A member of the RNA family "RNase MRP" from Setaria italica, 246 nucleotides long. Rfam 15.1 lists 3,510 matches to the family in 2,315 species. On this family, see Schmitt et al., FASEB J 1993: "Secondary structure of RNase MRP RNA as predicted by phylogenetic comparison". The family's RNA type in Rfam is ribozyme. The base pairs follow the family's consensus structure, which is taken from published work. A search with the family's covariance model found it, with a score of 75 bits.

RNA sequence: AUGCCACAGGAUGAAGUGAGCGGGCCUAACAAGCCCUGGAAAGUCCCCGGGCCCUUUGCGCAGCGAUGCGCCCACGGAGACGUGGACGGCCCACGAGCUGGCUCUCCCCGGCCUCGGUUGGGGGGCUGAGACCUGUGUGGAGCCCAAUUAUUCAGGGAGCCGGCUCUGGGUCAAAUGGCCGAACCUAUCACAGUUAUUCACUUUGGUCCGCCGGACUAACAGAACGGGGCUUACACUCCUGUGGCA
Numbered sequence: 001a002u003g004c005c006a007c008a009g010g011a012u013g014a015a016g017u018g019a020g021c022g023g024g025c026c027u028a029a030c031a032a033g034c035c036c037u038g039g040a041a042a043g044u045c046c047c048c049g050g051g052c053c054c055u056u057u058g059c060g061c062a063g064c065g066a067u068g069c070g071c072c073c074a075c076g077g078a079g080a081c082g083u084g085g086a087c088g089g090c091c092c093a094c095g096a097g098c099u100g101g102c103u104c105u106c107c108c109c110g111g112c113c114u115c116g117g118u119u120g121g122g123g124g125g126c127u128g129a130g131a132c133c134u135g136u137g138u139g140g141a142g143c144c145c146a147a148u149u150a151u152u153c154a155g156g157g158a159g160c161c162g163g164c165u166c167u168g169g170g171u172c173a174a175a176u177g178g179c180c181g182a183a184c185c186u187a188u189c190a191c192a193g194u195u196a197u198u199c200a201c202u203u204u205g206g207u208c209c210g211c212c213g214g215a216c217u218a219a220c221a222g223a224a225c226g227g228g229g230c231u232u233a234c235a236c237u238c239c240u241g242u243g244g245c246a
Base pairs, nucleotide, nucleotide: 002246003245004244005243006242007241008240009239010238011237014203015202016201017200018199019198022036023035024034025033041232042231043230045229046228047227048226059070060069061068062067072085073084074083075082076081088172089171090170095166096165097164098163099162100161104159105158106157107156206216207215208214209213